The family of this 155-nucleotide RNA sequence from Paraburkholderia steynii is "Group II catalytic intron D1-D4-7". Its family is annotated with Group II intron splicing in the Gene Ontology. The organism belongs to Paraburkholderia, within Bacteria. A search with the family's covariance model found it, with a score of 112 bits. The family has 244 seed sequences and 1,296 matches in Rfam 15.1. The pairing is the family consensus, mapped onto this sequence. Rfam's curators write: Group II introns are found in rRNA, tRNA and mRNA of organelles in fungi, plants and protists, and also in mRNA in bacteria.
RNA sequence: CCUGCUGUACGACCAGCAGUAGCCUAGGAGGACAUGCGUCACUGGCAACGGUGAGGUGUGAAGCUUCUCUGACAAUGUAGUCCCCGACGUUCAGGGCGGGGUGACGGUCGUGAGACCGUCCCUCGGAGACUCCCAGCAGCACUGGGGUUGAGACG
Numbered sequence: 001c002c003u004g005c006u007g008u009a010c011g012a013c014c015a016g017c018a019g020u021a022g023c024c025u026a027g028g029a030g031g032a033c034a035u036g037c038g039u040c041a042c043u044g045g046c047a048a049c050g051g052u053g054a055g056g057u058g059u060g061a062a063g064c065u066u067c068u069c070u071g072a073c074a075a076u077g078u079a080g081u082c083c084c085c086g087a088c089g090u091u092c093a094g095g096g097c098g099g100g101g102u103g104a105c106g107g108u109c110g111u112g113a114g115a116c117c118g119u120c121c122c123u124c125g126g127a128g129a130c131u132c133c134c135a136g137c138a139g140c141a142c143u144g145g146g147g148u149u150g151a152g153a154c155g
Base pairs, nucleotide, nucleotide: 002019003018004017005016006015007014028069029068030067031066032065033060034059035058036057037056039054040053041052042051043050044049082096083095084094086092087091097125098124099123100122108115109114129148130147131146132145133144